A member of the RNA family "Metazoan signal recognition particle RNA" from Varroa destructor, 297 nucleotides long.
Rfam's curators write: The signal recognition particle (SRP) is a universally conserved ribonucleoprotein. It is involved in the co-translational targeting of proteins to membranes. The eukaryotic SRP consists of a 300-nucleotide 7S RNA and six proteins: SRPs 72, 68, 54, 19, 14, and 9.
The family's consensus secondary structure is taken from published work.
RNA sequence: GCCGGAGGCAGUGGCAAGUCUCUGUAAUCCCGCUUCUGGGAGGCUGGUGCAAGGGACAUCUACGGGUUGGGGCACCCGCUCGUUGACUGUCGAUGUCGAUCGAGUGUCCGCACUAAGCUAGGCGUUUACAUGGGCGCUUCACAGGGAACUGGGAGGGUCCAGGUUGGAUAAUGAGGGGCGCACCGGCUCAGGGCGGAAACGCAGCAAGCAAAAGUCCCCGCGCUUUGCAGUAGUGGGAUCGCACCCGUGAAUAGGCGUCCUCGUCGGGCCUAACCUACUGGUUGGACCUAGCACCCU
Numbered sequence: 001g002c003c004g005g006a007g008g009c010a011g012u013g014g015c016a017a018g019u020c021u022c023u024g025u026a027a028u029c030c031c032g033c034u035u036c037u038g039g040g041a042g043g044c045u046g047g048u049g050c051a052a053g054g055g056a057c058a059u060c061u062a063c064g065g066g067u068u069g070g071g072g073c074a075c076c077c078g079c080u081c082g083u084u085g086a087c088u089g090u091c092g093a094u095g096u097c098g099a100u101c102g103a104g105u106g107u108c109c110g111c112a113c114u115a116a117g118c119u120a121g122g123c124g125u126u127u128a129c130a131u132g133g134g135c136g137c138u139u140c141a142c143a144g145g146g147a148a149c150u151g152g153g154a155g156g157g158u159c160c161a162g163g164u165u166g167g168a169u170a171a172u173g174a175g176g177g178g179c180g181c182a183c184c185g186g187c188u189c190a191g192g193g194c195g196g197a198a199a200c201g202c203a204g205c206a207a208g209c210a211a212a213a214g215u216c217c218c219c220g221c222g223c224u225u226u227g228c229a230g231u232a233g234u235g236g237g238a239u240c241g242c243a244c245c246c247g248u249g250a251a252u253a254g255g256c257g258u259c260c261u262c263g264u265c266g267g268g269c270c271u272a273a274c275c276u277a278c279u280g281g282u283u284g285g286a287c288c289u290a291g292c293a294c295c296c297u
Base pairs, nucleotide, nucleotide: 001044002043003042004023005022006021007020008019009018028041029040030039046295047294048293049292050291052289053288054287057284058283060281061280062279064276065275066274067273068272069271070270071269076268077267081263082262085259086258087257090255091254093252094251096249101247102246104244105243106242107241108237109236111235112234113233114232115231117228118227120225121224122223123222124221125220126166128164129163131161132160133159134158135157137155138154139153140152142151143150144149168172175218176217177216178215179214186209187208188207193202194201195200